[Rfam]
RNA sequence: AUUCACGUCUAUGACUGUGAGUGUGACUAAUGAAUAAUUGGUCACUGUUGCUGAUUGUUGGGAAGGUGUAGGUACUCCUUAUAAUAGGAAUCCUGCAUGACGGGCAUCUCACAAGGAUGCCC
Dot-bracket structure: .....(.(.(.((((.((.((((((((((.........)))))))....))).)).)))).).).)((((((...((((......))))..))))))....((((((((.....))))))))
Nitrogen stress-induced RNA 9: a 122-nucleotide RNA sequence from Calothrix sp. PCC 6303. Rfam links the family to the GO term heterocyst differentiation. A reference for the family is Brenes-Alvarez et al. (2016), "Identification of Conserved and Potentially Regulatory Small RNAs in Heterocystous Cyanobacteria", Front Microbiol. A search with the family's covariance model found it, with a score of 105 bits.